RNA sequence: CCAGCACAUUCACAGGUCCUCCCCCAGGCGGUGGGGGUAGGAUUUGGUAGCUGGUGCUGAGAGAAAACCUUUGGUGGCACCUUUGCCCUGGGACUGUGCCAGUGGCAGCUGUCACUCAAUGGGACAGAG
Numbered sequence: 001c002c003a004g005c006a007c008a009u010u011c012a013c014a015g016g017u018c019c020u021c022c023c024c025c026a027g028g029c030g031g032u033g034g035g036g037g038u039a040g041g042a043u044u045u046g047g048u049a050g051c052u053g054g055u056g057c058u059g060a061g062a063g064a065a066a067a068c069c070u071u072u073g074g075u076g077g078c079a080c081c082u083u084u085g086c087c088c089u090g091g092g093a094c095u096g097u098g099c100c101a102g103u104g105g106c107a108g109c110u111g112u113c114a115c116u117c118a119a120u121g122g123g124a125c126a127g128a129g
Stems, first nucleotide, its partner, number of pairs: 003058005013046003017042004022036004068123003071119004077113001079112002083108005088102004
Background:
Rfam assigns this 129-nucleotide sequence from Balaenoptera musculus to the family "Small nucleolar RNA SNORA30/SNORA37 family". A reference for the family is Huttenhofer et al. (2001), "RNomics: an experimental approach that identifies 201 candidates for novel, small, non-messenger RNAs in mouse", EMBO J. It scores 126 bits against the family's covariance model. The family has 11 seed sequences and 407 matches in Rfam 15.1. The base pairs follow the family's consensus structure, which was predicted with RNAfold. NCBI's taxonomy places the organism under Eukaryota, Amniota, Mammalia, Laurasiatheria, Balaenoptera.